[Rfam]
RNA sequence: UGACGGGGACCCGCACAAGAGGUGGAUUAUGUGGUUUAAUUCGACGCUACGCGAAAAACCUUACCUGGGCUCGAACGACUGGUAGUAACAUUUAUGAAAGUAGAUGUGAUUCGCAAGAAAGCCAGCCGAGGUGCUGCAUGGUUGUCGUCAGCUCGUGUCGUGAGAUGUUGGGUUAAGUCCCGCAACGAGCGCAACCCCUAUUCUGUGUUGCCUAGCAAUAGGAUCUCUCAGAAGACUGCCGCGGAUAACGUGGAGGAAGGUGGGGAUGACGUCAAAUCAUCAUGGCCUUUAUGUCCAGGGCUACACACGUAAUACAAUGGCAUAGACAGAGGGCAGCAAUAUCGCGAGAUGGAGCCAAUCCCUAAACUAUGCCCCAGUUCAGAUUGCAGGCUGCAAUUCGCCUGCAUGAAGCCGGAAUCUCUAGUAAUCGCAGAUCAGCACGCUGCGGUGAAUACGUUCCCGGGUCUUGUACACACCGCCCGUCACACCACGAAAGUUAAUUGCAACAGAAGUGCUCAGGUCGUCUGGGCCCUAAGUUGUGAUUAGUAAUUGGGGUGAAGUCGUAACAAGGUAGCCGUACCGGAAGGUGCGGCUGGAUCA
Numbered sequence: 001u002g003a004c005g006g007g008g009a010c011c012c013g014c015a016c017a018a019g020a021g022g023u024g025g026a027u028u029a030u031g032u033g034g035u036u037u038a039a040u041u042c043g044a045c046g047c048u049a050c051g052c053g054a055a056a057a058a059c060c061u062u063a064c065c066u067g068g069g070c071u072c073g074a075a076c077g078a079c080u081g082g083u084a085g086u087a088a089c090a091u092u093u094a095u096g097a098a099a100g101u102a103g104a105u106g107u108g109a110u111u112c113g114c115a116a117g118a119a120a121g122c123c124a125g126c127c128g129a130g131g132u133g134c135u136g137c138a139u140g141g142u143u144g145u146c147g148u149c150a151g152c153u154c155g156u157g158u159c160g161u162g163a164g165a166u167g168u169u170g171g172g173u174u175a176a177g178u179c180c181c182g183c184a185a186c187g188a189g190c191g192c193a194a195c196c197c198c199u200a201u202u203c204u205g206u207g208u209u210g211c212c213u214a215g216c217a218a219u220a221g222g223a224u225c226u227c228u229c230a231g232a233a234g235a236c237u238g239c240c241g242c243g244g245a246u247a248a249c250g251u252g253g254a255g256g257a258a259g260g261u262g263g264g265g266a267u268g269a270c271g272u273c274a275a276a277u278c279a280u281c282a283u284g285g286c287c288u289u290u291a292u293g294u295c296c297a298g299g300g301c302u303a304c305a306c307a308c309g310u311a312a313u314a315c316a317a318u319g320g321c322a323u324a325g326a327c328a329g330a331g332g333g334c335a336g337c338a339a340u341a342u343c344g345c346g347a348g349a350u351g352g353a354g355c356c357a358a359u360c361c362c363u364a365a366a367c368u369a370u371g372c373c374c375c376a377g378u379u380c381a382g383a384u385u386g387c388a389g390g391c392u393g394c395a396a397u398u399c400g401c402c403u404g405c406a407u408g409a410a411g412c413c414g415g416a417a418u419c420u421c422u423a424g425u426a427a428u429c430g431c432a433g434a435u436c437a438g439c440a441c442g443c444u445g446c447g448g449u450g451a452a453u454a455c456g457u458u459c460c461c462g463g464g465u466c467u468u469g470u471a472c473a474c475a476c477c478g479c480c481c482g483u484c485a486c487a488c489c490a491c492g493a494a495a496g497u498u499a500a501u502u503g504c505a506a507c508a509g510a511a512g513u514g515c516u517c518a519g520g521u522c523g524u525c526u527g528g529g530c531c532c533u534a535a536g537u538u539g540u541g542a543u544u545a546g547u548a549a550u551u552g553g554g555g556u557g558a559a560g561u562c563g564u565a566a567c568a569a570g571g572u573a574g575c576c577g578u579a580c581c582g583g584a585a586g587g588u589g590c591g592g593c594u595g596g597a598u599c600a
Stems, first nucleotide, its partner, number of pairs: 001473002003470003007467007015457002019421005024315001026313008034304002040055004064299007076128002079125005089106007110119003130288002133286004139282002141277003144273001146271002151190006157166003169182004196265004201233005207227001211222002236256002239253005319373007331362003336355002341350003380411001385406007427449007476570001478567001481563002486557004491552003496547012512532001514530004519526002572595010

Shown here is a 600-nucleotide part of an RNA from Elusimicrobium minutum, a member of the family "Bacterial small subunit ribosomal RNA". The source organism's lineage runs through Bacteria, Elusimicrobiota, Elusimicrobiaceae, Elusimicrobium and Elusimicrobium minutum.